Shown here is a 587-nucleotide part of an RNA from Allobrachymonas denitrificans, a member of the family "Bacterial large subunit ribosomal RNA". Clan: LSU clan.
RNA sequence: CCCGCGGAAAGACGGAAAGACCCCAUGAACCUUUACUGUAGCUUUGUAUUGGACUUUGAACAGAUCUGUGUAGGAUAGGUGGGAGGCUUUGAAGGCAGGAUGCUAGUUCUGCUGGAGCCGACGUUGAAAUACCACCCUGGUGUGUUUGAGGUUCUAACCUAGGUCCCUUAUCGGGAUUGGGGACAGUGCAUGGUAGGCAGUUUGACUGGGGCGGUCUCCUCCCAAAGCGUAACGGAGGAGUUCGAAGGUACGCUAGUUACGGUCGGACAUCGUGACGAUAGUGCAAUGGCAUAAGCGUGCUUAACUGCGAGACUGACAAGUCGAGCAGAUGCGAAAGCAGGACAUAGUGAUCCGGUGGUUCUGUAUGGAAGGGCCAUCGCUCAACGGAUAAAAGGUACUCUGGGGAUAACAGGCUGAUACCGCCCAAGAGUUCAUAUCGACGGCGGUGUUUGGCACCUCGAUGUCGGCUCAUCUCAUCCUGGGGCUGUAGCCGGUCCCAAGGGUAUGGCUGUUCGCCAUUUAAAGAGGUACGUGAGCUGGGUUUAAAACGUCGUGAGACAGUUUGGUCCCUAUCUUCCGUGGGCGCU
Numbered sequence: 001c002c003c004g005c006g007g008a009a010a011g012a013c014g015g016a017a018a019g020a021c022c023c024c025a026u027g028a029a030c031c032u033u034u035a036c037u038g039u040a041g042c043u044u045u046g047u048a049u050u051g052g053a054c055u056u057u058g059a060a061c062a063g064a065u066c067u068g069u070g071u072a073g074g075a076u077a078g079g080u081g082g083g084a085g086g087c088u089u090u091g092a093a094g095g096c097a098g099g100a101u102g103c104u105a106g107u108u109c110u111g112c113u114g115g116a117g118c119c120g121a122c123g124u125u126g127a128a129a130u131a132c133c134a135c136c137c138u139g140g141u142g143u144g145u146u147u148g149a150g151g152u153u154c155u156a157a158c159c160u161a162g163g164u165c166c167c168u169u170a171u172c173g174g175g176a177u178u179g180g181g182g183a184c185a186g187u188g189c190a191u192g193g194u195a196g197g198c199a200g201u202u203u204g205a206c207u208g209g210g211g212c213g214g215u216c217u218c219c220u221c222c223c224a225a226a227g228c229g230u231a232a233c234g235g236a237g238g239a240g241u242u243c244g245a246a247g248g249u250a251c252g253c254u255a256g257u258u259a260c261g262g263u264c265g266g267a268c269a270u271c272g273u274g275a276c277g278a279u280a281g282u283g284c285a286a287u288g289g290c291a292u293a294a295g296c297g298u299g300c301u302u303a304a305c306u307g308c309g310a311g312a313c314u315g316a317c318a319a320g321u322c323g324a325g326c327a328g329a330u331g332c333g334a335a336a337g338c339a340g341g342a343c344a345u346a347g348u349g350a351u352c353c354g355g356u357g358g359u360u361c362u363g364u365a366u367g368g369a370a371g372g373g374c375c376a377u378c379g380c381u382c383a384a385c386g387g388a389u390a391a392a393a394g395g396u397a398c399u400c401u402g403g404g405g406a407u408a409a410c411a412g413g414c415u416g417a418u419a420c421c422g423c424c425c426a427a428g429a430g431u432u433c434a435u436a437u438c439g440a441c442g443g444c445g446g447u448g449u450u451u452g453g454c455a456c457c458u459c460g461a462u463g464u465c466g467g468c469u470c471a472u473c474u475c476a477u478c479c480u481g482g483g484g485c486u487g488u489a490g491c492c493g494g495u496c497c498c499a500a501g502g503g504u505a506u507g508g509c510u511g512u513u514c515g516c517c518a519u520u521u522a523a524a525g526a527g528g529u530a531c532g533u534g535a536g537c538u539g540g541g542u543u544u545a546a547a548a549c550g551u552c553g554u555g556a557g558a559c560a561g562u563u564u565g566g567u568c569c570c571u572a573u574c575u576u577c578c579g580u581g582g583g584c585g586c587u
Stems, first nucleotide, its partner, number of pairs: 001583008010575003014570002022404004027400002029396005035201004042193002045190004051154012064141003068137001078136005085119003094113008158181003162178006204216004217239006240385001242342002248300006254280002257275006281290002305328004311322003330339003353379007361372002413454003417451001418448007428438002465540001466538004470532001471529005478503002481498006505519005546564004550559003